[Rfam]
RNA sequence: AUAAAAAACAGAGGCGCGAAAACGAUGAGUCAUUAUCUGGAGGCUGACACCCGAAGAACGAUAAUAAAAGGCGAAUUCGCCGAAGGACAGCUGUGUUGGAAGUUGAUCCUGGGUCAUGGUUGAAUAAAUCAUGGACUGUCACGUUAGUGGAGUACUGUCUUAAUG
Number, nucleotide and partner (000 for none) at each position: 001a000002u000003a000004a000005a000006a160007a000008a158009c157010a156011g155012a000013g000014g000015c000016g080017c079018g078019a077020a076021a000022a000023c073024g072025a000026u000027g000028a000029g000030u000031c000032a065033u064034u063035a062036u061037c060038u000039g000040g000041a000042g000043g000044c000045u000046g000047a000048c000049a000050c000051c000052c000053g000054a000055a000056g000057a000058a000059c000060g037061a036062u035063a034064a033065u032066a000067a000068a000069a000070g000071g000072c024073g023074a000075a000076u020077u019078c018079g017080c016081c000082g000083a000084a110085g109086g108087a107088c105089a104090g103091c102092u101093g000094u099095g000096u000097u000098g000099g094100a000101a092102g091103u090104u089105g088106a000107u087108c086109c085110u084111g137112g136113g000114u134115c133116a132117u131118g130119g129120u128121u127122g000123a000124a000125u000126a000127a121128a120129u119130c118131a117132u116133g115134g114135a000136c112137u111138g000139u150140c149141a148142c147143g000144u000145u000146a000147g142148u141149g140150g139151a000152g000153u000154a000155c011156u010157g009158u008159c000160u006161u000162a000163a000164u000165g000